Shown here is a 127-nucleotide RNA from Rhizobium sp. LC145, a member of the family "Alphaproteobacterial ar14".
[Rfam]
RNA sequence: AGGUCAUCCAACGACGCACUCCUCCUCCCAGCGAAGUUGGAUAGAGAUCGGCAAUAUCCUCCUCCUCCCAAUUGCCGAUCAAGUUUAAAAAGCCUGGCGCCUCCUCCUCCCGCGCCAGGCUUUUUUG
Numbered sequence: 001a002g003g004u005c006a007u008c009c010a011a012c013g014a015c016g017c018a019c020u021c022c023u024c025c026u027c028c029c030a031g032c033g034a035a036g037u038u039g040g041a042u043a044g045a046g047a048u049c050g051g052c053a054a055u056a057u058c059c060u061c062c063u064c065c066u067c068c069c070a071a072u073u074g075c076c077g078a079u080c081a082a083g084u085u086u087a088a089a090a091a092g093c094c095u096g097g098c099g100c101c102u103c104c105u106c107c108u109c110c111c112g113c114g115c116c117a118g119g120c121u122u123u124u125u126u127g
Stems, first nucleotide, its partner, number of pairs: 007041003011037002015033003046080010090122011